Rfam assigns this 94-nucleotide RNA from Cynara cardunculus to the family "Small nucleolar RNA Z221/R21b".
RNA sequence: GAGCAGUGAUGAGAACUUAGGAAAGUCAUGCACCACUCUGAUUCUCAUAGUGAUUGAUAAACUUUCUCCAUACCCAUAUUUUGUUUCUGAGCUC
Numbered sequence: 001g002a003g004c005a006g007u008g009a010u011g012a013g014a015a016c017u018u019a020g021g022a023a024a025g026u027c028a029u030g031c032a033c034c035a036c037u038c039u040g041a042u043u044c045u046c047a048u049a050g051u052g053a054u055u056g057a058u059a060a061a062c063u064u065u066c067u068c069c070a071u072a073c074c075c076a077u078a079u080u081u082u083g084u085u086u087c088u089g090a091g092c093u094c
Base pairs, nucleotide, nucleotide: 001094002093003092004091